[Rfam]
This 45-nucleotide RNA sequence from Granulicella sp. WH15 belongs to the Rfam family "Acido-Lenti-1 RNA". A search with the family's covariance model found it, with a score of 42 bits.
Nucleotides: 045
Stems, first nucleotide, its partner, number of pairs: 001019008032044005
Number, partner (000 for none) and nucleotide at each position: 001019c002018c003017u004016a005015g006014g007013g008012c009000u010000u011000u012008g013007c014006c015005c016004u017003a018002g019001g020000c021000u022000g023000g024000u025000a026000u027000a028000g029000g030000g031000c032044g033043c034042g035041c036040c037000g038000u039000u040036g041035g042034c043033g044032c045000u